[Rfam]
RNA sequence: UGGCCAUCCAAGGGGAGUCCUGGUUGGACUGAGAUUUGCCAAAACUGGCAAGAACCCUUCGAACCUGAUCCGGGUCAUGCCGGCGAAGGGAUCGGAUGUCCUCCGCCCC
Numbered sequence: 001u002g003g004c005c006a007u008c009c010a011a012g013g014g015g016a017g018u019c020c021u022g023g024u025u026g027g028a029c030u031g032a033g034a035u036u037u038g039c040c041a042a043a044a045c046u047g048g049c050a051a052g053a054a055c056c057c058u059u060c061g062a063a064c065c066u067g068a069u070c071c072g073g074g075u076c077a078u079g080c081c082g083g084c085g086a087a088g089g090g091a092u093c094g095g096a097u098g099u100c101c102u103c104c105g106c107c108c109c
Base pairs, nucleotide, nucleotide: 006097007096008095009094011058012057013056014055017029018028019027020026036051037050038049039048040047064089065088066087070083071082072081073080
RNA: TPP riboswitch aptamer (THI element)